[Rfam]
RNA sequence: GGGGAGUUUUGAUACCUGGCCAAACGGAGUCGUGUUUGUGUUGGCACAAAAAUUCCCAACAGUAACACCACCUGGUGUGCCUUCUGAUGACUGCAGUGAGUUGAGAGAAAUCAUUGCAGACAGAUACGAGGCUUACAACU
Numbered sequence: 001g002g003g004g005a006g007u008u009u010u011g012a013u014a015c016c017u018g019g020c021c022a023a024a025c026g027g028a029g030u031c032g033u034g035u036u037u038g039u040g041u042u043g044g045c046a047c048a049a050a051a052a053u054u055c056c057c058a059a060c061a062g063u064a065a066c067a068c069c070a071c072c073u074g075g076u077g078u079g080c081c082u083u084c085u086g087a088u089g090a091c092u093g094c095a096g097u098g099a100g101u102u103g104a105g106a107g108a109a110a111u112c113a114u115u116g117c118a119g120a121c122a123g124a125u126a127c128g129a130g131g132c133u134u135a136c137a138a139c140u
Stems, first nucleotide, its partner, number of pairs: 002057006016044004022037004077134001079132005091119003096114004
This 140-nucleotide RNA sequence from Branchiostoma belcheri belongs to the Rfam family "Small Cajal body specific RNA 8". From the family's description: scaRNAs are a specific class of small nuclear RNAs which localise to the Cajal bodies and guide the modification of RNA polymerase II transcribed spliceosomal RNAs U1, U2, U4, U5 and U12. The source organism's lineage runs through Eukaryota, Eumetazoa, Amphioxiformes, Branchiostomatidae and Branchiostoma. On this family, see Darzacq et al., EMBO J 2002: "Cajal body-specific small nuclear RNAs: a novel class of 2'-O-methylation and pseudouridylation guide RNAs".